The record is a 145-nucleotide RNA from Aliikangiella coralliicola, which matches "Bacterial antisense RNA HPnc0260" in Rfam. On this family, see Sharma et al., Nature 2010: "The primary transcriptome of the major human pathogen Helicobacter pylori".
[Rfam]
RNA sequence: AUUACUCUAAAAGGAUUGGAAAAAAUACAAAUGAAUCACAACUUCGCAUUUUUUUCGAGAUGGUACAUCUAUUAUAUGUCCCUUACGCAGUUUACUUCAAAUAAACUGGUAGUCGCGAGUGGACUCGAACCACCGACCCCCACCA
Numbered sequence: 001a002u003u004a005c006u007c008u009a010a011a012a013g014g015a016u017u018g019g020a021a022a023a024a025a026u027a028c029a030a031a032u033g034a035a036u037c038a039c040a041a042c043u044u045c046g047c048a049u050u051u052u053u054u055u056c057g058a059g060a061u062g063g064u065a066c067a068u069c070u071a072u073u074a075u076a077u078g079u080c081c082c083u084u085a086c087g088c089a090g091u092u093u094a095c096u097u098c099a100a101a102u103a104a105a106c107u108g109g110u111a112g113u114c115g116c117g118a119g120u121g122g123a124c125u126c127g128a129a130c131c132a133c134c135g136a137c138c139c140c141c142a143c144c145a
Base pairs, nucleotide, nucleotide: 024050025049026048031044033042061076062075107142108141109140112137116135117134119133120132121131122130
The family's consensus secondary structure was predicted with CMfinder.